[Rfam]
This 111-nucleotide RNA from Staphylococcus simulans belongs to the Rfam family "SAM riboswitch aptamer (S box leader)". From the family's description: The SAM riboswitch is found upstream of a number of genes which code for proteins involved in methionine or cysteine biosynthesis in Gram-positive bacteria. The SAM riboswitch acts at the level of transcription termination control. A search with the family's covariance model found it, with a score of 79 bits. The source organism's lineage runs through Bacteria, Bacillota, Bacilli, Staphylococcaceae and Staphylococcus.
RNA sequence: AGCUUAUCAAGAGAGGUGGAGUGAUGGGCACUUUGAAACCUCGGCAACAUGGUUCGCUGUUAGCGACGCGUGUGCCAAUUCCCAUAGCAACUAUUUGCUAAGAGAUAAGAA
Numbered sequence: 001a002g003c004u005u006a007u008c009a010a011g012a013g014a015g016g017u018g019g020a021g022u023g024a025u026g027g028g029c030a031c032u033u034u035g036a037a038a039c040c041u042c043g044g045c046a047a048c049a050u051g052g053u054u055c056g057c058u059g060u061u062a063g064c065g066a067c068g069c070g071u072g073u074g075c076c077a078a079u080u081c082c083c084a085u086a087g088c089a090a091c092u093a094u095u096u097g098c099u100a101a102g103a104g105a106u107a108a109g110a111a
Stems, first nucleotide, its partner, number of pairs: 003109006013042005021031003025084004043076004048072002050068002053065001080103001085100006